[Rfam]
RNA: mir-219 microRNA precursor family
RNA sequence: UCUGGCUAUGAUUGUCCAAACGCAAUUCUUGUCAAUGAAUCCAAGAACUGUGCGUGGACAUCAGUGCUUGA
Dot-bracket structure: .(.(((..((((.(((((..((((.((((((..........)))))).))))..)))))))))..))).).